Annotation:
This 63-nucleotide sequence from Cephalotus follicularis belongs to the Rfam family "Plastid-psbA-2 3UTR RNA". On this family, see Richter et al., Plant Commun 2023: "Retrograde signaling in plants: A critical review focusing on the GUN pathway and beyond". Its Rfam clan is "Plastid-psbA 3UTR RNA clan". Rfam's curators write: Plastid psbA-2 is a non-coding RNA (ncRNA) present in plastids. It was identified in inverted repeat sequences in the 3 prime untranslate region (3UTR) of photosystem II quinone-binding protein (psbA). The base pairs follow the family's consensus structure, which was predicted with LocARNA. The family's RNA type in Rfam is cis-regulatory element.

RNA sequence: AUUUAGGAGCAAUAACCAACCUUCUUGAUACAACAAGAAAUUGGUUAUUGCUCCUAAAUUUUC
Numbered sequence: 001a002u003u004u005a006g007g008a009g010c011a012a013u014a015a016c017c018a019a020c021c022u023u024c025u026u027g028a029u030a031c032a033a034c035a036a037g038a039a040a041u042u043g044g045u046u047a048u049u050g051c052u053c054c055u056a057a058a059u060u061u062u063c
Stems, first nucleotide, its partner, number of pairs: 001059019023038005